[Rfam]
RNA sequence: GGAGGCGCGUGUGUUCUGGUGGGCACCCCGGUCUUCAAAAUCGGUGGGCGGCGCGCGGCGUCGCCGGCGGGUUCGAUCCCCGUGCGCCUCC
Numbered sequence: 001g002g003a004g005g006c007g008c009g010u011g012u013g014u015u016c017u018g019g020u021g022g023g024c025a026c027c028c029c030g031g032u033c034u035u036c037a038a039a040a041u042c043g044g045u046g047g048g049c050g051g052c053g054c055g056c057g058g059c060g061u062c063g064c065c066g067g068c069g070g071g072u073u074c075g076a077u078c079c080c081c082g083u084g085c086g087c088c089u090c091c
Base pairs, nucleotide, nucleotide: 001091002090003089004088005087006086007085008084009083011026012025013024014023015022016021028044029043030042031041032040047065048064049063050062051061068082069081070080071079
Record summary: Shown here is a 91-nucleotide RNA from Nonomuraea sp. PA05, a member of the family "Selenocysteine transfer RNA". The family's consensus secondary structure is taken from published work. The literature on the family includes a 2000 paper in FEBS Lett by Mizutani and Goto, "Eukaryotic selenocysteine tRNA has the 9/4 secondary structure". The family has 109 seed sequences and 4,211 matches in Rfam 15.1. The organism belongs to Nonomuraea, within Bacteria. The match comes from Rfam's covariance-model search (72 bits).